[Rfam]
Shown here is a 210-nucleotide sequence from Citrobacter koseri, a member of the family "Enterobacterial sRNA STnc180".
It is one of the family's seed sequences.
RNA sequence: UUUCCUUAUACACCACAGCAAUAAGCGCUGAGUACAUCUCAGCAUAAAGUAUUAAACAAAUGUCGGUGUAGCCUAUGCAAACUGUGAAUCUUAAAUAUUGGUCAUGGAUUGGGGCGUUCUCAGUAUCGCUCUUGUUCUGGGCUCAACUUAUCUGGAUUGUCUCUUUCUGAUCGUAUGCCGGUAAAUGCCCGAUGGCGCAACGUCAUCGGG
Dot-bracket structure: .........(((((...(.........(((((.....)))))..................)...)))))...............................(((..(.(.(((.(.........).))).).).......)))(.(.((.....)).).)............................((((((((((...))))))))))